[Rfam]
RNA: FMN riboswitch aptamer (RFN element)
Organism: Megasphaera sp. An286
RNA sequence: AAUAGUCUUUGGGGCAAGGUGAGAAAGGGCAGCUUUCAAUUCCUGACCGGCGGUAUAGUCCGCUAGCCUGGCGUAAGCGGGGCUGAACCGAUGCGAUUUCGGUACCGACAGUAUAGUCUGGAUGGGAAAAGACGACG
Numbered sequence: 001a002a003u004a005g006u007c008u009u010u011g012g013g014g015c016a017a018g019g020u021g022a023g024a025a026a027g028g029g030c031a032g033c034u035u036u037c038a039a040u041u042c043c044u045g046a047c048c049g050g051c052g053g054u055a056u057a058g059u060c061c062g063c064u065a066g067c068c069u070g071g072c073g074u075a076a077g078c079g080g081g082g083c084u085g086a087a088c089c090g091a092u093g094c095g096a097u098u099u100c101g102g103u104a105c106c107g108a109c110a111g112u113a114u115a116g117u118c119u120g121g122a123u124g125g126g127a128a129a130a131g132a133c134g135a136c137g
Base pairs, nucleotide, nucleotide: 003135005133006132007131008130009129010128017044018043019042046117047116048107049106050063051062052061053060058105059104066083067082068081087103088102089101090100091099109120110119111118
Dot-bracket structure: ..(.((((((......(((......................))).[[((((((....[[))))..(((............)))...(((((.......)))))]])).(((....]]))).......)))))).)..